[Rfam]
RNA sequence: AUAAACAGCCUCUAGGGUUCCGAUUUGAGCAGAGGACGCUCGAAUGGCUGGUCCGAGAGAGGCGAGCUAACUCAAGUUUUGCAGCAAAGCUUAGUGGCAGCUACACGGCGGGACAAAAGCCCGGGAGAC
Dot-bracket structure: .......(((((..((...(((((((((((.......))))))))..).)).))....))))).((((..(........................)..)))).(.[...(((.......))).)..]..
Guanidine-I riboswitch aptamer: a 129-nucleotide sequence from Leptolyngbya sp. FACHB-36. It scores 75 bits against the family's covariance model. The organism belongs to Leptolyngbya, within Bacteria.